Record summary:
Rfam assigns this 33-nucleotide sequence from Flavobacterium aurantiibacter to the family "S4-Flavobacteria ribosomal protein leader". Pairs were carried over by alignment from the consensus structure, which is taken from published work. It is annotated as a cis-regulatory leader. The source organism's lineage runs through Bacteria, Pseudomonadati, Bacteroidota, Flavobacteriia and Flavobacterium.
RNA sequence: CGCUAUCGAAGGAUCUGACCUGAAUUCAUAGUG
Numbered sequence: 001c002g003c004u005a006u007c008g009a010a011g012g013a014u015c016u017g018a019c020c021u022g023a024a025u026u027c028a029u030a031g032u033g
Base pairs, nucleotide, nucleotide: 001033002032003031004030005029006028008027010021011020012019